[Rfam]
RNA sequence: CCAGUCAUCCCAUUGACUGUAACCUACCGUGACAGGCGUGGCGGGCAACUGCGGGGUCUGAAGCUCACAGGACAAUGUAACCUUGCAUUGUAAAAUGCGAUAACGAAACCGUGAGGGAAUAGUUAUUACCUGCAAGCAUCAUGCGGAUGAGGUG
Numbered sequence: 001c002c003a004g005u006c007a008u009c010c011c012a013u014u015g016a017c018u019g020u021a022a023c024c025u026a027c028c029g030u031g032a033c034a035g036g037c038g039u040g041g042c043g044g045g046c047a048a049c050u051g052c053g054g055g056g057u058c059u060g061a062a063g064c065u066c067a068c069a070g071g072a073c074a075a076u077g078u079a080a081c082c083u084u085g086c087a088u089u090g091u092a093a094a095a096u097g098c099g100a101u102a103a104c105g106a107a108a109c110c111g112u113g114a115g116g117g118a119a120u121a122g123u124u125a126u127u128a129c130c131u132g133c134a135a136g137c138a139u140c141a142u143g144c145g146g147a148u149g150a151g152g153u154g
Stems, first nucleotide, its partner, number of pairs: 002019006029068004033060005039054001041052004084099006102123001109116002130146005
Rfam assigns this 154-nucleotide sequence from Arsenophonus sp. ENCA to the family "Group II catalytic intron D1-D4-7". The literature on the family includes a 2001 paper in Trends Genet by Bonen and Vogel, "The ins and outs of group II introns". Rfam's curators write: Group II introns are found in rRNA, tRNA and mRNA of organelles in fungi, plants and protists, and also in mRNA in bacteria. Its family is annotated with Group II intron splicing in the Gene Ontology. The source organism's lineage runs through Bacteria, Pseudomonadati, Pseudomonadota, Gammaproteobacteria and Arsenophonus.